[Rfam]
RNA sequence: CCCUAGCCCUGAUGGAAGAGGCAUCCUUUUGUGCCGGGGUUCGGCAUAAAAGAUACAGCGUACAGCAGGAACAGCU
Numbered sequence: 001c002c003c004u005a006g007c008c009c010u011g012a013u014g015g016a017a018g019a020g021g022c023a024u025c026c027u028u029u030u031g032u033g034c035c036g037g038g039g040u041u042c043g044g045c046a047u048a049a050a051a052g053a054u055a056c057a058g059c060g061u062a063c064a065g066c067a068g069g070a071a072c073a074g075c076u
Stems, first nucleotide, its partner, number of pairs: 009068003013064002018059001023054003029049008
Dot-bracket structure: ........(((.((...(....(((...((((((((.....))))))))..)))....)...)).)))........

Background
The family of this 76-nucleotide RNA sequence from Flavobacterium cheongpyeongense is "Flavo-1 RNA". Pairs were carried over by alignment from the consensus structure, which is taken from published work.